This 91-nucleotide RNA sequence from Anisodus acutangulus belongs to the Rfam family "Small nucleolar RNA snoR26".
RNA sequence: AAAGCAUCAAUGAUGAUUAAUCCAAUUCGUUAUCCUUGCACUUUGAUUGCUAAAUGAAGAAAAUCAUGGGGAGAAAUAAUCUGAGAUGCUA
Numbered sequence: 001a002a003a004g005c006a007u008c009a010a011u012g013a014u015g016a017u018u019a020a021u022c023c024a025a026u027u028c029g030u031u032a033u034c035c036u037u038g039c040a041c042u043u044u045g046a047u048u049g050c051u052a053a054a055u056g057a058a059g060a061a062a063a064u065c066a067u068g069g070g071g072a073g074a075a076a077u078a079a080u081c082u083g084a085g086a087u088g089c090u091a
Base pairs, nucleotide, nucleotide: 003090004089005088006087007086008085
The source organism's lineage runs through Eukaryota, Tracheophyta, Spermatophyta, Magnoliopsida and Anisodus.
The base pairs follow the family's consensus structure, which was predicted with WAR.